[Rfam]
RNA sequence: GUAGGCUAUGGCGAUAUGGUGCCUAAAACCUACAUUGGUAUGUUUGUAGGUGCACUGUGUGCUCUGGCUGGUGUACUUACGAUCGCUUUGCCAGUGCCAGUCAUAGUUUCAAAU
Numbered sequence: 001g002u003a004g005g006c007u008a009u010g011g012c013g014a015u016a017u018g019g020u021g022c023c024u025a026a027a028a029c030c031u032a033c034a035u036u037g038g039u040a041u042g043u044u045u046g047u048a049g050g051u052g053c054a055c056u057g058u059g060u061g062c063u064c065u066g067g068c069u070g071g072u073g074u075a076c077u078u079a080c081g082a083u084c085g086c087u088u089u090g091c092c093a094g095u096g097c098c099a100g101u102c103a104u105a106g107u108u109u110c111a112a113a114u
Base pairs, nucleotide, nucleotide: 001114002113005110008107009106011104013102014101015100018097021095022094037077038076039075040074049063050062051061
Dot-bracket structure: ((..(..((.(.(((..(..((..............((((........(((.........)))..........))))................)).)..))).).))..)..))
Rfam assigns this 114-nucleotide sequence from Sitophilus oryzae to the family "Potassium channel RNA editing signal". It scores 89 bits against the family's covariance model. About the family: This family represents a group of sequences related to the human potassium channel Kv1.1 hairpin element which directs the efficient modification of an adenosine to inosine by an adenosine deaminase acting on RNA (ADAR). The ADAR modification causes an isoleucine/valine recoding event which lies in the ion-conducting pore of the potassium channel. It is thought that this editing event targets the process of fast inactivation and allows a more rapid recovery from inactivation at negative potentials. The base pairs follow the family's consensus structure, which is taken from published work. Gene Ontology term of the family: adenosine to inosine editing. Rfam classes the family as a cis-regulatory element. Taxonomically the source falls in Sitophilus (Eukaryota, Eumetazoa, Ecdysozoa, Aparaglossata).